[Rfam]
RNA sequence: UGAGUGCCGGGCAACCAGCAUUGACCGCCCGUGAGAAGACAGCAGAAGGCAUAGUAGGCGCAAGGCAGGCGCUGAAGGCC
Numbered sequence: 001u002g003a004g005u006g007c008c009g010g011g012c013a014a015c016c017a018g019c020a021u022u023g024a025c026c027g028c029c030c031g032u033g034a035g036a037a038g039a040c041a042g043c044a045g046a047a048g049g050c051a052u053a054g055u056a057g058g059c060g061c062a063a064g065g066c067a068g069g070c071g072c073u074g075a076a077g078g079c080c
Stems, first nucleotide, its partner, number of pairs: 003022005009016002040045001048080003057073005

The family of this 80-nucleotide RNA from Duganella sp. Root198D2 is "Group II catalytic intron D1-D4-1". About the family: Group II introns are found in rRNA, tRNA and mRNA of organelles in fungi, plants and protists, and also in mRNA in bacteria. The match comes from Rfam's covariance-model search (42 bits).